[Rfam]
RNA sequence: ACUGAAUAUCAGCAAAGCUGCUGAAAAGCAGUGACGCAAAGCUAUAGGGACUACUUCCAUAAGGAAAUGUCAGCCAGUUGCAGGU
Numbered sequence: 001a002c003u004g005a006a007u008a009u010c011a012g013c014a015a016a017g018c019u020g021c022u023g024a025a026a027a028g029c030a031g032u033g034a035c036g037c038a039a040a041g042c043u044a045u046a047g048g049g050a051c052u053a054c055u056u057c058c059a060u061a062a063g064g065a066a067a068u069g070u071c072a073g074c075c076a077g078u079u080g081c082a083g084g085u
Stems, first nucleotide, its partner, number of pairs: 012037002017032006040079004047075002049071003056065003
RNA: c-di-GMP-I riboswitch aptamer